A member of the RNA family "Iron response element I" from Catagonus wagneri, 35 nucleotides long. A reference for the family is Nichol and Winzerling (2002), "Structured RNA upstream of insect cap distal iron responsive elements enhances iron regulatory protein-mediated control of translation", Insect Biochem Mol Biol. Rfam 15.1 lists 6,829 matches to the family in 599 species. The base pairs follow the family's consensus structure, which is taken from published work. Rfam links the family to the GO term response to iron ion.
RNA sequence: CUGUCUUUUGCUUCAACAUUGUUUGAAUGGAACAG
Numbered sequence: 001c002u003g004u005c006u007u008u009u010g011c012u013u014c015a016a017c018a019u020u021g022u023u024u025g026a027a028u029g030g031a032a033c034a035g
Stems, first nucleotide, its partner, number of pairs: 001035004006031003010028001012027005017021001